[Rfam]
RNA sequence: GCAUAGCCGAAUACUGUGUUCUUUUAUCAGUAGUUUACACAGCCAGACACCAUGCAAAAAUGUAGUCUUCCCUUUAAAAUUGUUAUGAUGGUAUGCUAAGUCUUCUUCAUAGCAUAUCGUUAUUAAAGGUGAAUACAAAU
Numbered sequence: 001g002c003a004u005a006g007c008c009g010a011a012u013a014c015u016g017u018g019u020u021c022u023u024u025u026a027u028c029a030g031u032a033g034u035u036u037a038c039a040c041a042g043c044c045a046g047a048c049a050c051c052a053u054g055c056a057a058a059a060a061u062g063u064a065g066u067c068u069u070c071c072c073u074u075u076a077a078a079a080u081u082g083u084u085a086u087g088a089u090g091g092u093a094u095g096c097u098a099a100g101u102c103u104u105c106u107u108c109a110u111a112g113c114a115u116a117u118c119g120u121u122a123u124u125a126a127a128g129g130u131g132a133a134u135a136c137a138a139a140u
Stems, first nucleotide, its partner, number of pairs: 001055004006050001014042006068133003071129007086122013